[Rfam]
This 88-nucleotide RNA from Pongo abelii belongs to the Rfam family "Small nucleolar RNA SNORD70".
Rfam describes the family as follows. snoRNA HBII-234 belongs to the C/D family of snoRNAs. It is the human orthologue of the mouse MBII-234 and is predicted to guide 2'O-ribose methylation of the small 18S rRNA on position A512.

RNA sequence: UUCGUCGUUGUCAAUGAUGUAUUCUUGUUGGAACUGAAUCUAAGUGAUCUGACUCAAUAUUCGUCACUACCACUGAGACAACGAUUAA
Numbered sequence: 001u002u003c004g005u006c007g008u009u010g011u012c013a014a015u016g017a018u019g020u021a022u023u024c025u026u027g028u029u030g031g032a033a034c035u036g037a038a039u040c041u042a043a044g045u046g047a048u049c050u051g052a053c054u055c056a057a058u059a060u061u062c063g064u065c066a067c068u069a070c071c072a073c074u075g076a077g078a079c080a081a082c083g084a085u086u087a088a
Stems, first nucleotide, its partner, number of pairs: 001088002004085009
The base pairs follow the family's consensus structure. A reference for the family is Huttenhofer et al. (2001), "RNomics: an experimental approach that identifies 201 candidates for novel, small, non-messenger RNAs in mouse", EMBO J. The organism belongs to Pongo, within Eukaryota.